cow-rumen-1 RNA: a 61-nucleotide RNA sequence. The sequence is in the family's curated seed alignment.
RNA sequence: UCAAUGGUUGCUGAGUUAGAGCUUAACAGCGUAAAUCCAUCGCCGGACACGAUCGAAGAGG
Numbered sequence: 001u002c003a004a005u006g007g008u009u010g011c012u013g014a015g016u017u018a019g020a021g022c023u024u025a026a027c028a029g030c031g032u033a034a035a036u037c038c039a040u041c042g043c044c045g046g047a048c049a050c051g052a053u054c055g056a057a058g059a060g061g
Base pairs, nucleotide, nucleotide: 004040005039006038007037009031010030011029012028013027014023015022016021